About this RNA: This 103-nucleotide RNA from Pararobbsia alpina belongs to the Rfam family "TPP riboswitch aptamer (THI element)".

RNA sequence: GCGACGAAACAGGGGUGCUUUGCGUGCAUCGCGCAAGGCUGAGAGAAGACCCUUCGCACCCGAUCCGGGUAAUGCCGGCGCGGGAAGUUUUCGACACCGCCCA
Numbered sequence: 001g002c003g004a005c006g007a008a009a010c011a012g013g014g015g016u017g018c019u020u021u022g023c024g025u026g027c028a029u030c031g032c033g034c035a036a037g038g039c040u041g042a043g044a045g046a047a048g049a050c051c052c053u054u055c056g057c058a059c060c061c062g063a064u065c066c067g068g069g070u071a072a073u074g075c076c077g078g079c080g081c082g083g084g085a086a087g088u089u090u091u092c093g094a095c096a097c098c099g100c101c102c103a
Stems, first nucleotide, its partner, number of pairs: 006091005011053004016047001017039009059084004065078004